[Rfam]
RNA sequence: UCGCGCCUGUCAGAAGAGAGUUUUCUCGCAGAAAACCGCCGAAGGCGCAGGAAGCAUCCACAAUGAUGGUCUGAACGCUCAGGCAAAAGGACUGACAAACGCCG
Numbered sequence: 001u002c003g004c005g006c007c008u009g010u011c012a013g014a015a016g017a018g019a020g021u022u023u024u025c026u027c028g029c030a031g032a033a034a035a036c037c038g039c040c041g042a043a044g045g046c047g048c049a050g051g052a053a054g055c056a057u058c059c060a061c062a063a064u065g066a067u068g069g070u071c072u073g074a075a076c077g078c079u080c081a082g083g084c085a086a087a088a089g090g091a092c093u094g095a096c097a098a099a100c101g102c103c104g
Stems, first nucleotide, its partner, number of pairs: 008097006020036004038084003041080002045078003051071002

Glycine riboswitch aptamer: a 104-nucleotide RNA from Rhodoferax sediminis. Lineage of the source: Bacteria > Pseudomonadati > Burkholderiales > Comamonadaceae > Rhodoferax. Rfam describes the family as follows. This family represents the bacterial glycine riboswitch.